Shown here is an 87-nucleotide sequence from Duganella sp. Root198D2, a member of the family "c-di-GMP-I riboswitch aptamer". The family's consensus secondary structure is taken from published work. NCBI's taxonomy places the organism under Bacteria, Pseudomonadota, Betaproteobacteria, Oxalobacteraceae, Duganella.
[Rfam]
RNA sequence: UCUGAAACAGGGCAAACCACUGGAAACGGUGGGACGCAAAGUCAUCGGUCUAAAGAGCUUCGGCUCCAUGACGGCAGGACUGCCAGA
Number, nucleotide and partner (000 for none) at each position: 001u000002c000003u000004g000005a000006a000007a000008c000009a000010g000011g000012g037013c036014a000015a000016a000017c032018c031019a030020c029021u028022g027023g000024a000025a000026a000027c022028g021029g020030u019031g018032g017033g000034a000035c000036g013037c012038a000039a000040a081041g080042u079043c078044a000045u077046c000047g075048g072049u071050c070051u000052a000053a000054a000055g066056a065057g064058c063059u000060u000061c000062g000063g058064c057065u056066c055067c000068a000069u000070g050071a049072c048073g000074g000075c047076a000077g045078g043079a042080c041081u040082g000083c000084c000085a000086g000087a000